[Rfam]
RNA: RNase MRP
RNA sequence: GUGCCGCAGGAUGAAGUGAUUGGGCCUAACUAGCCCUGGAAAGUCCCCGGGCCCUCUGCGCAGCGAUGCGCCCACGGAGACGUGGACGGCCCACGGGCCUGGCUCUCCCCGCCUUCUCUCGGGUGGGGGGCUGAGACAUGCGUGGAGCCCAAUUCAGGGAGCCGGCUCUGGGUCAAAUGGCCGAAUAUCUCACAGUUAUUCACUUGGUCCAUGUUAACCUGGACUAACAGAACGGGGCUUACACUCCUGUGGCA
Numbered sequence: 001g002u003g004c005c006g007c008a009g010g011a012u013g014a015a016g017u018g019a020u021u022g023g024g025c026c027u028a029a030c031u032a033g034c035c036c037u038g039g040a041a042a043g044u045c046c047c048c049g050g051g052c053c054c055u056c057u058g059c060g061c062a063g064c065g066a067u068g069c070g071c072c073c074a075c076g077g078a079g080a081c082g083u084g085g086a087c088g089g090c091c092c093a094c095g096g097g098c099c100u101g102g103c104u105c106u107c108c109c110c111g112c113c114u115u116c117u118c119u120c121g122g123g124u125g126g127g128g129g130g131c132u133g134a135g136a137c138a139u140g141c142g143u144g145g146a147g148c149c150c151a152a153u154u155c156a157g158g159g160a161g162c163c164g165g166c167u168c169u170g171g172g173u174c175a176a177a178u179g180g181c182c183g184a185a186u187a188u189c190u191c192a193c194a195g196u197u198a199u200u201c202a203c204u205u206g207g208u209c210c211a212u213g214u215u216a217a218c219c220u221g222g223a224c225u226a227a228c229a230g231a232a233c234g235g236g237g238c239u240u241a242c243a244c245u246c247c248u249g250u251g252g253c254a
Base pairs, nucleotide, nucleotide: 002254003253004252005251006250007249008248009247010246011245014205015204016203017202018201019200022036023035024034025033041240042239043238045237046236047235048234059070060069061068062067072085073084074083075082076081102173103172108165109164111162112161116159117158118157119156128150129149130148131147138143207224208223209222210221211220